RNA sequence: CUAAAAGGAACGAUCGUUGUGAUAUGCGUUGAUCCGUUACAUAUCACAGUGAUUUUCCUUUAUAGCG
Numbered sequence: 001c002u003a004a005a006a007g008g009a010a011c012g013a014u015c016g017u018u019g020u021g022a023u024a025u026g027c028g029u030u031g032a033u034c035c036g037u038u039a040c041a042u043a044u045c046a047c048a049g050u051g052a053u054u055u056u057c058c059u060u061u062a063u064a065g066c067g
Stems, first nucleotide, its partner, number of pairs: 004061007012054015
A member of the RNA family "mir-5 microRNA precursor family" from Drosophila rhopaloa, 67 nucleotides long. Lineage of the source: Eukaryota > Panarthropoda > Brachycera > Drosophilidae > Sophophora. The match comes from Rfam's covariance-model search (92 bits). On this family, see Aravin et al., Dev Cell 2003: "The small RNA profile during Drosophila melanogaster development".